Rfam assigns this 72-nucleotide RNA from Siculibacillus lacustris to the family "Makes More Granules Regulator RNA (mmgR)". The pairing is the family consensus, mapped onto this sequence. Rfam describes the family as follows. SuhB later renamed mmgR (makes more granules regulator) was a putative non-coding RNA found multiple times in the Agrobacterium tumefaciens genome and related alpha-proteobacteria.

RNA sequence: GGCCACGGCCCUCCUUGGGCGUUUCCUCCCUAGACUUGGGCCGCCGCAAGGCGGCCUUUUUUUAUGCCCACG
Numbered sequence: 001g002g003c004c005a006c007g008g009c010c011c012u013c014c015u016u017g018g019g020c021g022u023u024u025c026c027u028c029c030c031u032a033g034a035c036u037u038g039g040g041c042c043g044c045c046g047c048a049a050g051g052c053g054g055c056c057u058u059u060u061u062u063u064a065u066g067c068c069c070a071c072g
Stems, first nucleotide, its partner, number of pairs: 008020004038057008